[Rfam]
RNA: Nuclear RNase P
Organism: Serendipita vermifera
RNA sequence: GCCAGAACCAAAGCCGCGAUACUCCCCACGAACCAGGAUGCCAGAUUCAUUCGUUUCUGCGCGUCCACAUCUGGGAGUGGGCUAAGGUCUGAGAAUUCUAAUCUCCCUCGAUCGACUCUAGCCGGGUCCGACGUACAACAGUCGCAACGACGUACAAGCAAACGCCUCCCGAAUUCAUUCCUUUGUUGCCUGGAGAUCGUGUUCCGACACGGGAGGGCCUUGAAUGGAAACGGGAUUGGAAUCGUCGUGGAGAUCGAGGUCAUCAAAGUGGCACCUCCAAUGUAGGAGGCGCAGAUCCUGAUGACCUCUUUAGUGCACUUCGCGGCUCGUCUUGUUCGCAAGAAUGAGACGAAACUCGAUUCAGACUACUCUGGUUCUGGC
Number, nucleotide and partner (000 for none) at each position: 001g381002c380003c379004a378005g000006a000007a000008c374009c373010a372011a000012a000013g326014c325015c324016g323017c322018g321019a320020u000021a078022c077023u076024c075025c074026c000027c000028a000029c000030g000031a000032a000033c000034c000035a000036g066037g065038a064039u063040g062041c061042c000043a000044g000045a000046u000047u000048c000049a000050u000051u000052c000053g000054u000055u000056u000057c000058u000059g000060c000061g041062c040063g039064u038065c037066c036067a000068c000069a000070u000071c000072u000073g000074g025075g024076a023077g022078u021079g000080g000081g000082c000083u000084a000085a000086g000087g000088u000089c364090u363091g362092a361093g360094a000095a000096u000097u000098c000099u000100a000101a000102u000103c252104u251105c250106c249107c000108u000109c000110g000111a000112u000113c000114g128115a127116c126117u125118c124119u000120a000121g000122c000123c000124g118125g117126g116127u115128c114129c144130g143131a142132c141133g000134u000135a000136c000137a000138a000139c000140a000141g132142u131143c130144g129145c000146a000147a248148c247149g246150a245151c244152g243153u000154a000155c000156a000157a000158g000159c000160a000161a000162a000163c000164g000165c000166c000167u235168c234169c233170c000171g000172a000173a000174u000175u000176c000177a000178u000179u000180c000181c000182u000183u000184u000185g000186u000187u000188g000189c000190c000191u000192g000193g000194a000195g000196a000197u000198c000199g000200u000201g000202u000203u000204c000205c000206g000207a000208c000209a000210c000211g000212g000213g000214a000215g000216g000217g000218c000219c000220u000221u000222g000223a000224a000225u000226g000227g000228a000229a000230a000231c000232g000233g169234g168235a167236u000237u000238g000239g000240a000241a000242u000243c152244g151245u150246c149247g148248u147249g106250g105251a104252g103253a000254u000255c000256g000257a000258g000259g000260u000261c000262a000263u000264c000265a000266a000267a000268g000269u000270g000271g000272c000273a000274c000275c000276u000277c000278c000279a000280a000281u000282g000283u000284a000285g000286g000287a000288g000289g000290c000291g000292c000293a000294g000295a000296u000297c000298c000299u000300g000301a000302u000303g000304a000305c000306c000307u000308c000309u000310u000311u000312a000313g000314u000315g000316c000317a000318c000319u000320u019321c018322g017323c016324g015325g014326c013327u352328c351329g350330u349331c348332u347333u346334g345335u344336u343337c000338g000339c000340a000341a000342g000343a336344a335345u334346g333347a332348g331349a330350c329351g328352a327353a000354a000355c000356u000357c000358g000359a000360u093361u092362c091363a090364g089365a000366c000367u000368a000369c000370u000371c000372u010373g009374g008375u000376u000377c000378u004379g003380g002381c001